[Rfam]
RNA sequence: UUUUUUGCAGUGAUGAGCCUAAUUUGUGGACUAGAGUUUCUGAUCUGGUGUUGAAUUACCAGAAUCUGAAGACUAACCCUUGGCUGUCUGAGCUCAAUU
Number, nucleotide and partner (000 for none) at each position: 001u000002u000003u097004u096005u000006u000007g093008c092009a000010g000011u000012g000013a000014u000015g000016a000017g000018c000019c000020u000021a000022a000023u000024u000025u000026g000027u000028g000029g000030a000031c000032u000033a000034g000035a000036g000037u071038u070039u069040c068041u000042g000043a000044u064045c062046u061047g060048g059049u058050g000051u000052u000053g000054a000055a000056u000057u000058a049059c048060c047061a046062g045063a000064a044065u000066c000067u000068g040069a039070a038071g037072a000073c000074u000075a000076a000077c000078c000079c000080u000081u000082g000083g000084c000085u000086g000087u000088c000089u000090g000091a000092g008093c007094u000095c000096a004097a003098u000099u000
The family of this 99-nucleotide RNA from Asparagus officinalis is "Small nucleolar RNA Z157/R69/R10".
Rfam links the family to the GO terms RNA processing and nucleolus.
Rfam classes the family as a C/D-box small nucleolar RNA.
NCBI's taxonomy places the organism under Eukaryota, Tracheophyta, Asparagales, Asparagaceae, Asparagus.